[Rfam]
RNA sequence: GAUUACUGGUUGACAUUUAGACUGAAAAUACUCAGAAAUUGUGUGUUGCUAUCAGCUUCCUCUUUCAAAAUAUAUGAGAGUGCAGUUAAACUAUAACACUAAAUUG
Numbered sequence: 001g002a003u004u005a006c007u008g009g010u011u012g013a014c015a016u017u018u019a020g021a022c023u024g025a026a027a028a029u030a031c032u033c034a035g036a037a038a039u040u041g042u043g044u045g046u047u048g049c050u051a052u053c054a055g056c057u058u059c060c061u062c063u064u065u066c067a068a069a070a071u072a073u074a075u076g077a078g079a080g081u082g083c084a085g086u087u088a089a090a091c092u093a094u095a096a097c098a099c100u101a102a103a104u105u106g
Stems, first nucleotide, its partner, number of pairs: 043099006054087004059082001061079004
Small nucleolar RNA snoR97: a 106-nucleotide sequence from Papaver nudicaule. By type it is an H/ACA-box small nucleolar RNA. A reference for the family is Marker et al. (2002), "Experimental RNomics: identification of 140 candidates for small non-messenger RNAs in the plant Arabidopsis thaliana", Curr Biol. Rfam 15.1 lists 862 matches to the family in 223 species. A search with the family's covariance model found it, with a score of 72 bits.